Lysine riboswitch aptamer: a 178-nucleotide RNA from Vibrio proteolyticus. The match comes from Rfam's covariance-model search (76 bits).
RNA sequence: UUAUGCAGAAGAGGAGCACUGCCCAGGCAGGUAUGUUGUGGAGCCUCAACUCCAACACGACAUACUCAGGGGGAGCAGUGCCGAGGUAGUUCUGAGUUGUGGAUCAGAUCUGUCGGUUGACUUGGGUUGAGUCCCAGCAACUGUCACCAGCACCGUCUGGUGAAGAGCUUCUGAGGUC
Number, nucleotide and partner (000 for none) at each position: 001u000002u000003a000004u000005g000006c173007a172008g171009a170010a169011g168012a000013g000014g000015a000016g081017c080018a079019c078020u077021g076022c075023c000024c073025a000026g000027g000028c000029a000030g066031g065032u064033a063034u062035g061036u060037u059038g000039u000040g000041g000042a000043g000044c000045c000046u000047c000048a000049a000050c000051u000052c000053c000054a000055a000056c000057a000058c000059g037060a036061c035062a034063u033064a032065c031066u030067c000068a000069g000070g000071g000072g000073g024074a000075g022076c021077a020078g019079u018080g017081c016082c000083g000084a000085g114086g113087u112088a111089g110090u000091u108092c107093u106094g105095a104096g000097u000098u000099g000100u000101g000102g000103a000104u095105c094106a093107g092108a091109u000110c089111u088112g087113u086114c085115g142116g141117u140118u139119g138120a000121c137122u000123u136124g135125g134126g133127u000128u000129g000130a000131g000132u000133c126134c125135c124136a123137g121138c119139a118140a117141c116142u115143g000144u163145c162146a161147c160148c159149a158150g157151c000152a000153c000154c000155g000156u000157c150158u149159g148160g147161u146162g145163a144164a000165g000166a000167g000168c011169u010170u009171c008172u007173g006174a000175g000176g000177u000178c000
Record summary
The organism belongs to Vibrio proteolyticus, within Bacteria.